[Rfam]
RNA sequence: CGGCUGGCGUAGUCGUGUGGAUACUUCGUUAACACUGAAAACAUUUUCUCUACCUGAAAAAUACAGUGGGGGUUCGCCCCUGCUAGUUCCACUGACGCAGUCCAGCCUCUUU
Numbered sequence: 001c002g003g004c005u006g007g008c009g010u011a012g013u014c015g016u017g018u019g020g021a022u023a024c025u026u027c028g029u030u031a032a033c034a035c036u037g038a039a040a041a042c043a044u045u046u047u048c049u050c051u052a053c054c055u056g057a058a059a060a061a062u063a064c065a066g067u068g069g070g071g072g073u074u075c076g077c078c079c080c081u082g083c084u085a086g087u088u089c090c091a092c093u094g095a096c097g098c099a100g101u102c103c104a105g106c107c108u109c110u111u112u
Stems, first nucleotide, its partner, number of pairs: 002107006012096004017092004027076002
A member of the RNA family "Vault RNA" from Mytilus edulis, 112 nucleotides long. It is annotated as a non-coding RNA gene.